This 87-nucleotide sequence from Methylobacterium oryzihabitans belongs to the Rfam family "Group II catalytic intron D1-D4-1". Rfam's curators write: Group II introns are found in rRNA, tRNA and mRNA of organelles in fungi, plants and protists, and also in mRNA in bacteria. The base pairs follow the family's consensus structure. Taxonomically the source falls in Methylobacterium (Bacteria, Pseudomonadota, Hyphomicrobiales, Methylobacteriaceae).
RNA sequence: CGCCUCGUGCCUGAAAGGGCCACGGCGUCGAGCCGGAGCGAGAAGUCAGCAAAGGUCGUAGUAGGGCGCGGUUUGCUCCCGAAGGAC
Numbered sequence: 001c002g003c004c005u006c007g008u009g010c011c012u013g014a015a016a017g018g019g020c021c022a023c024g025g026c027g028u029c030g031a032g033c034c035g036g037a038g039c040g041a042g043a044a045g046u047c048a049g050c051a052a053a054g055g056u057c058g059u060a061g062u063a064g065g066g067c068g069c070g071g072u073u074u075g076c077u078c079c080c081g082a083a084g085g086a087c
Stems, first nucleotide, its partner, number of pairs: 001030002005025004009020004046053001055087003064080003068076002
The match comes from Rfam's covariance-model search (40 bits). Its family is annotated with Group II intron splicing in the Gene Ontology. The family has 237 seed sequences and 2,508 matches in Rfam 15.1.